[Rfam]
RNA sequence: AGCAAGCGCACUCUGUGUCACAUUGAUUGACCUCAUGUGAAUACAAUUUGUAAGUUUGCCAGAGUAAGGUGUAGCUUCUUAUCCAUGUGAUUGGACUCCAACUUGCUAAUCACUUUGACGAAGUCUACGACAGCUUAA
Dot-bracket structure: .((((((..((..(((.((((((.((......))))))))..)))....))..)))))).....(((..(((.(.((....((.(.((((((.(...........).)))))).).))...)))..))).....))).
This 138-nucleotide RNA sequence from Drosophila willistoni belongs to the Rfam family "Small nucleolar RNA psi18S-841/snoR66". Its Rfam clan is "SNORA28 clan". The sequence is in the family's curated seed alignment. psi18S-841 is a member of the H/ACA class of snoRNA. This family is responsible for guiding the modification of uridine 841 in Drosophila 18S rRNA to pseudouridine. The family's consensus secondary structure was predicted with RNAfold. Lineage of the source: Eukaryota > Bilateria > Protostomia > Diptera > Sophophora. The family's RNA type in Rfam is H/ACA-box small nucleolar RNA.